[Rfam]
RNA sequence: ACAGAAAGGAGUUGUGAAACUCUAAGAGAAUAGAAUAGUUUAGUUAAGUCUAGUUUAGUUUUUGUGUUGAAGGGCUUCUACCUCAGAGGAGGAUCAUGAAGCCCUUUUUUA
Numbered sequence: 001a002c003a004g005a006a007a008g009g010a011g012u013u014g015u016g017a018a019a020c021u022c023u024a025a026g027a028g029a030a031u032a033g034a035a036u037a038g039u040u041u042a043g044u045u046a047a048g049u050c051u052a053g054u055u056u057a058g059u060u061u062u063u064g065u066g067u068u069g070a071a072g073g074g075c076u077u078c079u080a081c082c083u084c085a086g087a088g089g090a091g092g093a094u095c096a097u098g099a100a101g102c103c104c105u106u107u108u109u110u111a
Stems, first nucleotide, its partner, number of pairs: 001065005008023006037056002040053004072104007081092003
RNA: Bacteroides sRNA BTnc049